[Rfam]
RNA sequence: AUGCCCUGGCCAGUGGUAAGAUAAGCAAAGGCUUCGGGGUGACGAUUCCAAAGUCUGCAGAUCGAGCCCGGUCAGGGUGA
Dot-bracket structure: .((((((((((.(.(((..(((..(((..(((((.(((((....)))))).)))))))..)))..)))))))))))))).

Shown here is an 80-nucleotide RNA sequence from Tetranychus urticae, a member of the family "mir-5729 microRNA precursor family". A search with the family's covariance model found it, with a score of 81 bits. Its family is annotated with RISC complex and miRNA-mediated post-transcriptional gene silencing in the Gene Ontology.